[Rfam]
RNA sequence: GCUUUCCUUGUCAUGGGGCAAGAGAGUUGCUCAGGAAACACCUAGUGAGAGCAGCUGUGCUAACACCCUAACAACAUACAUGCAUCACCUGGGCUUUUAUCCAGUAUAUGGUGCAAUUUUUGGAAAC
Numbered sequence: 001g002c003u004u005u006c007c008u009u010g011u012c013a014u015g016g017g018g019c020a021a022g023a024g025a026g027u028u029g030c031u032c033a034g035g036a037a038a039c040a041c042c043u044a045g046u047g048a049g050a051g052c053a054g055c056u057g058u059g060c061u062a063a064c065a066c067c068c069u070a071a072c073a074a075c076a077u078a079c080a081u082g083c084a085u086c087a088c089c090u091g092g093g094c095u096u097u098u099a100u101c102c103a104g105u106a107u108a109u110g111g112u113g114c115a116a117u118u119u120u121u122g123g124a125a126a127c
Base pairs, nucleotide, nucleotide: 005020006018007017008016009015022060024058026055027054028053029052030051031050032049038046039045082114083113084112085111086110087109089104090103091102092101093100
U4atac minor spliceosomal RNA: a 127-nucleotide sequence from Mastacembelus armatus. Its family is annotated with mRNA 5'-splice site recognition, U4atac snRNP and pre-mRNA 5'-splice site binding in the Gene Ontology. NCBI's taxonomy places the organism under Eukaryota, Teleostomi, Clupeocephala, Euacanthomorphacea, Mastacembelus. On this family, see Davila Lopez et al., Nucleic Acids Res 2008: "Computational screen for spliceosomal RNA genes aids in defining the phylogenetic distribution of major and minor spliceosomal components". Rfam's curators write: U4atac is an essential component of the minor U12-type spliceosome complex which is required for removal of the rarer class of eukaryotic introns (AT-AC, U12-type). Clan: U4 clan.